[Rfam]
RNA sequence: GGUGCGAUUAACCAAUCUUUAAGGUUUAGGGAUUUUAAUGACGCUAUCCAGUUCUCUCUCUCGCUGGAUAUCGAGUGGCUCCUGUUCACUCUGUUGACGCCUCCCUGUUAUCACUUCGAGCCGCUGCAAGGCGGCUCUCCUUUU
Numbered sequence: 001g002g003u004g005c006g007a008u009u010a011a012c013c014a015a016u017c018u019u020u021a022a023g024g025u026u027u028a029g030g031g032a033u034u035u036u037a038a039u040g041a042c043g044c045u046a047u048c049c050a051g052u053u054c055u056c057u058c059u060c061u062c063g064c065u066g067g068a069u070a071u072c073g074a075g076u077g078g079c080u081c082c083u084g085u086u087c088a089c090u091c092u093g094u095u096g097a098c099g100c101c102u103c104c105c106u107g108u109u110a111u112c113a114c115u116u117c118g119a120g121c122c123g124c125u126g127c128a129a130g131g132c133g134g135c136u137c138u139c140c141u142u143u144u
Base pairs, nucleotide, nucleotide: 001045002044003043004042006013015039016038020037021036022035023034024033025032046069047068048067049066050065051064052063073091074090075089076088077087078086096109097108098107099106118137119136120135121134122133123132124131125130
RNA: Alphaproteobacterial sRNA BjrC1505